[Rfam]
RNA sequence: GGGCCGGCUCUAGCUCAGCGGUUACUUCUUUCCUUCAUGCUUUUUGAACCACCAGCCCCUCCGGGGGUUCGAGACCCGCGGGCGCUAAUCGGCCUUUUU
Numbered sequence: 001g002g003g004c005c006g007g008c009u010c011u012a013g014c015u016c017a018g019c020g021g022u023u024a025c026u027u028c029u030u031u032c033c034u035u036c037a038u039g040c041u042u043u044u045u046g047a048a049c050c051a052c053c054a055g056c057c058c059c060u061c062c063g064g065g066g067g068u069u070c071g072a073g074a075c076c077c078g079c080g081g082g083c084g085c086u087a088a089u090c091g092g093c094c095u096u097u098u099u
Stems, first nucleotide, its partner, number of pairs: 002094006013083004018079004026073003